Rfam assigns this 85-nucleotide sequence from Caenorhabditis japonica to the family "mir-83 microRNA precursor family".
Pairs were carried over by alignment from the consensus structure, which was predicted with RNAalifold.

[Rfam]
RNA sequence: CCCUUGGAAGCACUGAGUUUACGUGUGUGCUUGACGGCCUUCUCGAGCAACGAUCUAGCACCAUAUAAAUUCAGUAUUUUCGAGU
Numbered sequence: 001c002c003c004u005u006g007g008a009a010g011c012a013c014u015g016a017g018u019u020u021a022c023g024u025g026u027g028u029g030c031u032u033g034a035c036g037g038c039c040u041u042c043u044c045g046a047g048c049a050a051c052g053a054u055c056u057a058g059c060a061c062c063a064u065a066u067a068a069a070u071u072c073a074g075u076a077u078u079u080u081c082g083a084g085u
Base pairs, nucleotide, nucleotide: 012075013074014073015072016071017070018069019068020067021066024063025062027061028060030058031057033055034054035052036051